[Rfam]
RNA sequence: CACCUCACAUCACCCACGCACGGCAGGAGCGGGGGACCCAGGCAGUACGCCGUCACCGGCGCGCACGUGUGUCCGCACGCGUCCGCACGGACGGCUCGGGGUGAAGCCGCGCCACGGCGCGGCCGGGCAACUCCAGCCCGAACCCGACAGCUCACCUCGCAGGCGCCGGAGAGGAAAGCG
Numbered sequence: 001c002a003c004c005u006c007a008c009a010u011c012a013c014c015c016a017c018g019c020a021c022g023g024c025a026g027g028a029g030c031g032g033g034g035g036a037c038c039c040a041g042g043c044a045g046u047a048c049g050c051c052g053u054c055a056c057c058g059g060c061g062c063g064c065a066c067g068u069g070u071g072u073c074c075g076c077a078c079g080c081g082u083c084c085g086c087a088c089g090g091a092c093g094g095c096u097c098g099g100g101g102u103g104a105a106g107c108c109g110c111g112c113c114a115c116g117g118c119g120c121g122g123c124c125g126g127g128c129a130a131c132u133c134c135a136g137c138c139c140g141a142a143c144c145c146g147a148c149a150g151c152u153c154a155c156c157u158c159g160c161a162g163g164c165g166c167c168g169g170a171g172a173g174g175a176a177a178g179c180g
Stems, first nucleotide, its partner, number of pairs: 011165001013163002019027001029160006039098001099145003107122004125139004

A member of the RNA family "c-di-AMP riboswitch aptamer (ydaO/yuaA leader)" from Streptomyces montanisoli, 180 nucleotides long. Taxonomically the source falls in Streptomyces (Bacteria, Actinomycetes, Kitasatosporales, Streptomycetaceae). A search with the family's covariance model found it, with a score of 47 bits.